[Rfam]
The record is a 268-nucleotide RNA sequence from Clostridium uliginosum, which matches "glmS glucosamine-6-phosphate activated ribozyme aptamer" in Rfam.
The family's consensus secondary structure is taken from published work.
The organism belongs to Clostridium, within Bacteria.
RNA sequence: GAUAUUAAAAAAGCGCCAGAACUUAAGUAGAAAUUAAUUAACUUGUGUUUUAGAAUUAUGUGAGUAAAGUUUUUAAACGGAAACUCGACUCACAUUUGUUCGCUGAGUAAGUUCGAACGACUAAAUACAAGAUUUAGGUUCUCACUUAAGUUGACGAGGUUGGGGAGUUAUCGAAACUUCGGCGGGUGCCCCACGGUAUUUGCACUACCGUUAACAGCUGGCAAAGCUAUGAAGUAAUUUAUAGUACAAAUCCAGUUUGGUGUUAAAA
Dot-bracket structure: ...................((((((((.....................................................................................................................))))))))........(((((.....((((....))))......)))))(((((.......))))).....(((((......(((((((....)))))))........)))))...........